[Rfam]
Shown here is a 179-nucleotide RNA sequence from Bacillus sp. FJAT-18017, a member of the family "Lysine riboswitch aptamer". Pairs were carried over by alignment from the consensus structure, which is taken from published work.
RNA sequence: AGAUGGGGUAGAGGCUGCGGUUAUUAAGAGUAUUCCAGAAGAGGGACAGGAAUCCCCAACGAGACUGGACGAAAGGAACAACCGCCGAAGCGCCGCGGGACCCUGCCUGCGGUAAGCUGGGGCUGUAUCCGAACAGGUGCAGCACUGUCAUGGCAUUGCCAUGGUGAACUAUCCGUUUU
Numbered sequence: 001a002g003a004u005g006g007g008g009u010a011g012a013g014g015c016u017g018c019g020g021u022u023a024u025u026a027a028g029a030g031u032a033u034u035c036c037a038g039a040a041g042a043g044g045g046a047c048a049g050g051a052a053u054c055c056c057c058a059a060c061g062a063g064a065c066u067g068g069a070c071g072a073a074a075g076g077a078a079c080a081a082c083c084g085c086c087g088a089a090g091c092g093c094c095g096c097g098g099g100a101c102c103c104u105g106c107c108u109g110c111g112g113u114a115a116g117c118u119g120g121g122g123c124u125g126u127a128u129c130c131g132a133a134c135a136g137g138u139g140c141a142g143c144a145c146u147g148u149c150a151u152g153g154c155a156u157u158g159c160c161a162u163g164g165u166g167a168a169c170u171a172u173c174c175g176u177u178u179u
Base pairs, nucleotide, nucleotide: 006174007173008172009171010170011169017085018084019083020082021081022080024078025077034069035068036067037066038065089118090117091116092113093112094111095110096109097108098107119146120145122143123142124141125140126139127138128137129136148164149163150162151161152160153159154158